[Rfam]
RNA sequence: AUACUCCCUCCGUCCCAUAAUAUAAGAGCAUUUUGACACUAGUGUAGUGUCAAAACGCUCUUAUAUUAUGGGACGGAGGCAGUAG
Numbered sequence: 001a002u003a004c005u006c007c008c009u010c011c012g013u014c015c016c017a018u019a020a021u022a023u024a025a026g027a028g029c030a031u032u033u034u035g036a037c038a039c040u041a042g043u044g045u046a047g048u049g050u051c052a053a054a055a056c057g058c059u060c061u062u063a064u065a066u067u068a069u070g071g072g073a074c075g076g077a078g079g080c081a082g083u084a085g
Stems, first nucleotide, its partner, number of pairs: 003083003007079005013073005019067011031055010

MIR1120/MIR1122 microRNA precursor family: an 85-nucleotide RNA sequence from Triticum urartu. The family's consensus secondary structure was predicted with RNAalifold. NCBI's taxonomy places the organism under Eukaryota, Euphyllophyta, Mesangiospermae, Petrosaviidae, Triticum. The family has 6 seed sequences and 44,765 matches in Rfam 15.1. Its family is annotated with RISC complex and miRNA-mediated post-transcriptional gene silencing in the Gene Ontology.